A member of the RNA family "mir-282 microRNA precursor family" from Diabrotica balteata, 87 nucleotides long.
Rfam 15.1 lists 136 matches to the family in 128 species.
Pairs were carried over by alignment from the consensus structure, which was predicted with RNAalifold.

[Rfam]
RNA sequence: AGAGGGUUGAGAGGUAGCCUCUCCUAGGCUUUGUCUGGGUGGAAUGAAUUGGACAUAGCCUAACUGAGGUUAACUCUGGCCCGGAAA
Numbered sequence: 001a002g003a004g005g006g007u008u009g010a011g012a013g014g015u016a017g018c019c020u021c022u023c024c025u026a027g028g029c030u031u032u033g034u035c036u037g038g039g040u041g042g043a044a045u046g047a048a049u050u051g052g053a054c055a056u057a058g059c060c061u062a063a064c065u066g067a068g069g070u071u072a073a074c075u076c077u078g079g080c081c082c083g084g085a086a087a
Stems, first nucleotide, its partner, number of pairs: 012075002015072006027060004032055005

A reference for the family is Li et al. (2009), "Direct sequencing and expression analysis of a large number of miRNAs in Aedes aegypti and a multi-species survey of novel mosquito miRNAs", BMC Genomics.
The source organism's lineage runs through Eukaryota, Eumetazoa, Protostomia, Arthropoda and Diabrotica.